[Rfam]
RNA sequence: CAGUAGCACUAGGGGAGUCAAACGACUGAGAUGGACAUAUCCAGACCCUUAGAACCUGAUCUGGCUUCAAAACCAGCGUAGGGAAGUGGCAGCUAUAGGAU
Numbered sequence: 001c002a003g004u005a006g007c008a009c010u011a012g013g014g015g016a017g018u019c020a021a022a023c024g025a026c027u028g029a030g031a032u033g034g035a036c037a038u039a040u041c042c043a044g045a046c047c048c049u050u051a052g053a054a055c056c057u058g059a060u061c062u063g064g065c066u067u068c069a070a071a072a073c074c075a076g077c078g079u080a081g082g083g084a085a086g087u088g089g090c091a092g093c094u095a096u097a098g099g100a101u
Base pairs, nucleotide, nucleotide: 007088008087009086010085011049012048013047014046017026018025019024033042034041035040055082056081057080058079061076062075063074064073
The family of this 101-nucleotide sequence from Salinibacillus xinjiangensis is "TPP riboswitch aptamer (THI element)". The base pairs follow the family's consensus structure, which is taken from published work. Rfam describes the family as follows. Vitamin B(1) in its active form thiamin pyrophosphate (TPP) is an essential coenzyme that is synthesised by coupling of pyrimidine and thiazole moieties in bacteria. Taxonomically the source falls in Salinibacillus (Bacteria, Bacillota, Bacilli, Bacillaceae). Rfam links the family to the GO term thiamine pyrophosphate binding.